Rfam assigns this 614-nucleotide RNA from Jaculus jaculus to the family "c-sis internal ribosome entry site (IRES)".
The match comes from Rfam's covariance-model search (500 bits).
The family's consensus secondary structure was predicted with ILM.
Its family is annotated with ribosome binding in the Gene Ontology.
Lineage of the source: Eukaryota > Dipnotetrapodomorpha > Glires > Dipodinae > Jaculus.
This family represents the c-sis 5'-UTR which contains three modules that can individually mediate internal ribosome entry. However, the full length sequence is required for maximal IRES activity.

RNA sequence: CUGAGUAGACGCAGCCCGCAGAGGACAUCCAGAGCGGCGAGCCGGCGGGCAGACCGACCGAUCGACCGAGCGACUCGCGCCGCGUCCACCUGUCGGCCCGAUCCGGCCCGACCGAGCGCGCAGCGGGCACGCCGUGCGCGCGAAGCAGCCGUGCCCGCCGCCCGGGCCCCGCGCCAGGGCGCACACGCUCCCGCCCCCCUCACCCGGCCCGGGCGGGAGUUUGCACACCUCUCUGGCCGGGUGCUUGAGCCGCCGCUGCAAAGCCAACUUUGGAAAAAGUUUUUUUGGGGAGACUUGGGCUUUGAGGUGCCCGGCCCUGCGCUUUCUGAUCUGGGGAGCCUUGCCAGAAAAUGUUGUAAAAAAGCUAAGCCAGCGGGCACAGGAAAACGCCUUUAGCUGGCGAGUGAAGACGAGCCAUCGACUGCCGCGUUCCUUUUCCUCUCGGAGGUUGGAGUCCCCUGCGCGCCCCCACACGGCUAGACGCCUCGGCUGGUUCGCGACGCAGCCCCCCGGCCGUGGAUGCCCGCGCGGGCUCGGGAUCCGCCCAGGUAGCGGCCUCGGACCCUGCUCCCGUGCCCAGGUCCUCCCCAGCUCCCCAGCGACGGAGCCGGGGC
Numbered sequence: 001c002u003g004a005g006u007a008g009a010c011g012c013a014g015c016c017c018g019c020a021g022a023g024g025a026c027a028u029c030c031a032g033a034g035c036g037g038c039g040a041g042c043c044g045g046c047g048g049g050c051a052g053a054c055c056g057a058c059c060g061a062u063c064g065a066c067c068g069a070g071c072g073a074c075u076c077g078c079g080c081c082g083c084g085u086c087c088a089c090c091u092g093u094c095g096g097c098c099c100g101a102u103c104c105g106g107c108c109c110g111a112c113c114g115a116g117c118g119c120g121c122a123g124c125g126g127g128c129a130c131g132c133c134g135u136g137c138g139c140g141c142g143a144a145g146c147a148g149c150c151g152u153g154c155c156c157g158c159c160g161c162c163c164g165g166g167c168c169c170c171g172c173g174c175c176a177g178g179g180c181g182c183a184c185a186c187g188c189u190c191c192c193g194c195c196c197c198c199c200u201c202a203c204c205c206g207g208c209c210c211g212g213g214c215g216g217g218a219g220u221u222u223g224c225a226c227a228c229c230u231c232u233c234u235g236g237c238c239g240g241g242u243g244c245u246u247g248a249g250c251c252g253c254c255g256c257u258g259c260a261a262a263g264c265c266a267a268c269u270u271u272g273g274a275a276a277a278a279g280u281u282u283u284u285u286u287g288g289g290g291a292g293a294c295u296u297g298g299g300c301u302u303u304g305a306g307g308u309g310c311c312c313g314g315c316c317c318u319g320c321g322c323u324u325u326c327u328g329a330u331c332u333g334g335g336g337a338g339c340c341u342u343g344c345c346a347g348a349a350a351a352u353g354u355u356g357u358a359a360a361a362a363a364g365c366u367a368a369g370c371c372a373g374c375g376g377g378c379a380c381a382g383g384a385a386a387a388c389g390c391c392u393u394u395a396g397c398u399g400g401c402g403a404g405u406g407a408a409g410a411c412g413a414g415c416c417a418u419c420g421a422c423u424g425c426c427g428c429g430u431u432c433c434u435u436u437u438c439c440u441c442u443c444g445g446a447g448g449u450u451g452g453a454g455u456c457c458c459c460u461g462c463g464c465g466c467c468c469c470c471a472c473a474c475g476g477c478u479a480g481a482c483g484c485c486u487c488g489g490c491u492g493g494u495u496c497g498c499g500a501c502g503c504a505g506c507c508c509c510c511c512g513g514c515c516g517u518g519g520a521u522g523c524c525c526g527c528g529c530g531g532g533c534u535c536g537g538g539a540u541c542c543g544c545c546c547a548g549g550u551a552g553c554g555g556c557c558u559c560g561g562a563c564c565c566u567g568c569u570c571c572c573g574u575g576c577c578c579a580g581g582u583c584c585u586c587c588c589c590a591g592c593u594c595c596c597c598a599g600c601g602a603c604g605g606a607g608c609c610g611g612g613g614c
Stems, first nucleotide, its partner, number of pairs: 001243001018232001020230002024226001026181001028179003032175001034174003039169001041167002044113002047109004058096005064090001076084003117164002120161002123158009133142003184223002187220010198207002267280005286590007293582008307527003314523002317519005326513003334510003338506002356365002369401006377394001379392001382388001404503003409498001411497007418489004422480002424477004429472002431453003435448005454464002457461001530571003536565003540562004547558004594613004599608002